[Rfam]
RNA sequence: GGACACAUCUUACCUGACAGUGCUCGGCUGUACAUAGAUGUUCUAACACUGUCUGGUAAUGAUGUUCCC
Numbered sequence: 001g002g003a004c005a006c007a008u009c010u011u012a013c014c015u016g017a018c019a020g021u022g023c024u025c026g027g028c029u030g031u032a033c034a035u036a037g038a039u040g041u042u043c044u045a046a047c048a049c050u051g052u053c054u055g056g057u058a059a060u061g062a063u064g065u066u067c068c069c
Stems, first nucleotide, its partner, number of pairs: 002068001005065005010059005016053007024045001026043002
mir-8/mir-141/mir-200 microRNA precursor family: a 69-nucleotide sequence from Salmo salar. Rfam links the family to the GO terms miRNA-mediated post-transcriptional gene silencing and RISC complex. The family's consensus secondary structure was predicted with RNAalifold. NCBI's taxonomy places the organism under Eukaryota, Neopterygii, Teleostei, Clupeocephala, Salmo. For this family Rfam cites "Identification of novel genes coding for small expressed RNAs" (Lagos-Quintana et al., Science, 2001). The match comes from Rfam's covariance-model search (56 bits).